[Rfam]
RNA sequence: UCCCCCACAGUUCUCCGAUUCCAAUUUUCCGCAAGGAAUGUCAUCGCGACCGCCCCGCCGGUGUCUGGACACCCGCAGUACGUCGCAGCUUCGAUCCCGUAUCGGGUGCCUCUCAAGCCUGCCGCGCCUGGAUUACUGCGGUUCAGUUCUUGUCCGCCGGGCAAGCCAGUCCCGCGGGGCGAAUUGGUCUCGGAACUUAACCCUAAGUAUACCU
Numbered sequence: 001u002c003c004c005c006c007a008c009a010g011u012u013c014u015c016c017g018a019u020u021c022c023a024a025u026u027u028u029c030c031g032c033a034a035g036g037a038a039u040g041u042c043a044u045c046g047c048g049a050c051c052g053c054c055c056c057g058c059c060g061g062u063g064u065c066u067g068g069a070c071a072c073c074c075g076c077a078g079u080a081c082g083u084c085g086c087a088g089c090u091u092c093g094a095u096c097c098c099g100u101a102u103c104g105g106g107u108g109c110c111u112c113u114c115a116a117g118c119c120u121g122c123c124g125c126g127c128c129u130g131g132a133u134u135a136c137u138g139c140g141g142u143u144c145a146g147u148u149c150u151u152g153u154c155c156g157c158c159g160g161g162c163a164a165g166c167c168a169g170u171c172c173c174g175c176g177g178g179g180c181g182a183a184u185u186g187g188u189c190u191c192g193g194a195a196c197u198u199a200a201c202c203c204u205a206a207g208u209a210u211a212c213c214u
Base pairs, nucleotide, nucleotide: 009197010196011195015193016192017191018190
This 214-nucleotide part of an RNA from Thermothielavioides terrestris belongs to the Rfam family "Ascomycota telomerase RNA". Rfam's curators put it in the seed alignment. Pairs were carried over by alignment from the consensus structure. For this family Rfam cites "The common ancestral core of vertebrate and fungal telomerase RNAs" (Qi et al., Nucleic Acids Res, 2013). The family's RNA type in Rfam is non-coding RNA gene. NCBI's taxonomy places the organism under Eukaryota, Dikarya, leotiomyceta, Sordariales, Thermothielavioides terrestris.